[Rfam]
RNA sequence: AAAGUCUCAUACGAUGAAGGAGUAGCGAACCGCAUCGGCCCCGAGUCAUGCGCAGUCGUCCGUGAGGACGGCUGCGAAGCGUUGACAGGGGGGAUGUGGGCCAGGUAUUGAGCCGCGAAAAGACCCUCAUCCGGGGUGCCGACGCCAUCGAGGGCAGCGGAAGGCAAAACGGGAUGUCUCGUAAGCGCGAGAAGCAUUCCGACCCCGCGUGGUCUUAGACCC
Numbered sequence: 001a002a003a004g005u006c007u008c009a010u011a012c013g014a015u016g017a018a019g020g021a022g023u024a025g026c027g028a029a030c031c032g033c034a035u036c037g038g039c040c041c042c043g044a045g046u047c048a049u050g051c052g053c054a055g056u057c058g059u060c061c062g063u064g065a066g067g068a069c070g071g072c073u074g075c076g077a078a079g080c081g082u083u084g085a086c087a088g089g090g091g092g093g094a095u096g097u098g099g100g101c102c103a104g105g106u107a108u109u110g111a112g113c114c115g116c117g118a119a120a121a122g123a124c125c126c127u128c129a130u131c132c133g134g135g136g137u138g139c140c141g142a143c144g145c146c147a148u149c150g151a152g153g154g155c156a157g158c159g160g161a162a163g164g165c166a167a168a169a170c171g172g173g174a175u176g177u178c179u180c181g182u183a184a185g186c187g188c189g190a191g192a193a194g195c196a197u198u199c200c201g202a203c204c205c206c207g208c209g210u211g212g213u214c215u216u217a218g219a220c221c222c
Stems, first nucleotide, its partner, number of pairs: 012037005019031002023190001025188002039091004045086004049081002051076011110214001112213006132207006138165003143159003170201008179192002
RNA: Group II catalytic intron D1-D4-6